[Rfam]
RNA: TPP riboswitch aptamer (THI element)
Organism: Colwellia sp. PAMC 20917
RNA sequence: GAGCAAACCAAGGGGUGCAAUAAAAAGCUGUUGUUAAUAGGCUUUUGUAUUGCUGAGAAUUUUUACCCUUAAUACCUGAAACGGAUAAUGCCGGCGUAGGAAUGGUUAAUAUGUUGAAU
Number, nucleotide and partner (000 for none) at each position: 001g000002a000003g000004c000005a000006a107007a106008c105009c104010a103011a069012g068013g067014g066015g000016u000017g053018c052019a051020a050021u049022a000023a000024a000025a000026a000027g000028c000029u000030g000031u000032u000033g000034u000035u000036a000037a000038u000039a000040g000041g000042c000043u000044u000045u000046u000047g000048u000049a021050u020051u019052g018053c017054u000055g000056a000057g000058a000059a000060u000061u000062u000063u000064u000065a000066c014067c013068c012069u011070u000071a000072a000073u000074a000075c100076c099077u098078g097079a000080a000081a000082c093083g092084g091085a000086u000087a000088a000089u000090g000091c084092c083093g082094g000095c000096g000097u078098a077099g076100g075101a000102a000103u010104g009105g008106u007107u006108a000109a000110u000111a000112u000113g000114u000115u000116g000117a000118a000119u000